[Rfam]
RNA: epsC RNA
Organism: Cohnella abietis
RNA sequence: AGGCGAUUCCGCUGUGCCUUUUUGAUUUUGCGGACCCGGUCAUGCGGUGGGUUGUAGACAACCUUAGGCGCUAGUCGCCAAGCGUGUGGAGAUGGGGCUGGGUUUGAGACCCG
Numbered sequence: 001a002g003g004c005g006a007u008u009c010c011g012c013u014g015u016g017c018c019u020u021u022u023u024g025a026u027u028u029u030g031c032g033g034a035c036c037c038g039g040u041c042a043u044g045c046g047g048u049g050g051g052u053u054g055u056a057g058a059c060a061a062c063c064u065u066a067g068g069c070g071c072u073a074g075u076c077g078c079c080a081a082g083c084g085u086g087u088g089g090a091g092a093u094g095g096g097g098c099u100g101g102g103u104u105u106g107a108g109a110c111c112c113g
Base pairs, nucleotide, nucleotide: 001019002018003017004016007034009033010032011031012030035096036095037094038093040089041088042087043086044085045084046083049064050063051062052061053060054059067079068078069077070076099113100112101111102110103109